[Rfam]
RNA sequence: UUUUAAAAAUUUCAUCAAUUUCUACUAUUAAAAAUUGAUUUAUGUAUGUCAAAAUAAGAUAUACUUAGUAUGUCACGUGUAAUUGUCUUGUUACUCUGUCAGCCAUGCUACUUUUAACAAUAAAAAUGGAUGAAAUUUUUAAUA
Numbered sequence: 001u002u003u004u005a006a007a008a009a010u011u012u013c014a015u016c017a018a019u020u021u022c023u024a025c026u027a028u029u030a031a032a033a034a035u036u037g038a039u040u041u042a043u044g045u046a047u048g049u050c051a052a053a054a055u056a057a058g059a060u061a062u063a064c065u066u067a068g069u070a071u072g073u074c075a076c077g078u079g080u081a082a083u084u085g086u087c088u089u090g091u092u093a094c095u096c097u098g099u100c101a102g103c104c105a106u107g108c109u110a111c112u113u114u115u116a117a118c119a120a121u122a123a124a125a126a127u128g129g130a131u132g133a134a135a136u137u138u139u140u141a142a143u144a
Stems, first nucleotide, its partner, number of pairs: 003142014018127004023122002026119001028117006

Rfam assigns this 144-nucleotide RNA from Gossypium gossypioides to the family "MIR7502 microRNA precursor family".
It scores 78 bits against the family's covariance model.
The organism belongs to Gossypium, within Eukaryota.